This 97-nucleotide sequence from Canis lupus belongs to the Rfam family "mir-8813 microRNA precursor family". The family has 2 seed sequences and 307 matches in Rfam 15.1. Pairs were carried over by alignment from the consensus structure, which was predicted with RNAalifold. A search with the family's covariance model found it, with a score of 70 bits. The organism belongs to Canis lupus, within Eukaryota.
RNA sequence: UGGUGAUCUGAGGCUCCCUGGCCGUCACUCUGUCCCACACCCUCCUGGCCCAUGGGGCACAGGCUGAGUCACAGUAUAGUUUGUUGGGUCCUGACUC
Dot-bracket structure: .((((((((.(((((.....((.((.((((.(((.....((((..........))))....))).)))).)).))..)))))...)))))...))).